[Rfam]
A member of the RNA family "tRNA", 69 nucleotides long. Transfer RNA (tRNA) molecules are approximately 80 nucleotides in length. The family's RNA type in Rfam is transfer RNA. The base pairs follow the family's consensus structure, which is taken from published work. On this family, see Hou, Trends Biochem Sci 1993: "The tertiary structure of tRNA and the development of the genetic code".
RNA sequence: GAGGAUUUAGCUUAAUUAAAGCAGUUGAUUUGCAUUUAACAGAUGUAAGAUAUAGUCUUACAGUCCUUA
Numbered sequence: 001g002a003g004g005a006u007u008u009a010g011c012u013u014a015a016u017u018a019a020a021g022c023a024g025u026u027g028a029u030u031u032g033c034a035u036u037u038a039a040c041a042g043a044u045g046u047a048a049g050a051u052a053u054a055g056u057c058u059u060a061c062a063g064u065c066c067u068u069a
Base pairs, nucleotide, nucleotide: 001068002067003066004065005064006063007062010022011021012020013019024040025039026038027037028036045061046060047059048058049057